[Rfam]
RNA: c-di-GMP-I riboswitch aptamer
Organism: Rhizobacter sp. Root1221
RNA sequence: CACUGAAAAGGGCGAACCCGACCGAAAGGCGGGGGUGCAAAGUCACCGGUCUAAGGGGCAUCGGCUCUAUGACAACGGGAUUGCCAGG
Numbered sequence: 001c002a003c004u005g006a007a008a009a010g011g012g013c014g015a016a017c018c019c020g021a022c023c024g025a026a027a028g029g030c031g032g033g034g035g036u037g038c039a040a041a042g043u044c045a046c047c048g049g050u051c052u053a054a055g056g057g058g059c060a061u062c063g064g065c066u067c068u069a070u071g072a073c074a075a076c077g078g079g080a081u082u083g084c085c086a087g088g
Base pairs, nucleotide, nucleotide: 012038013037017033018032019031020030022029023028041082042081043080044079046078047077048076049073050072051071056067057066058065059064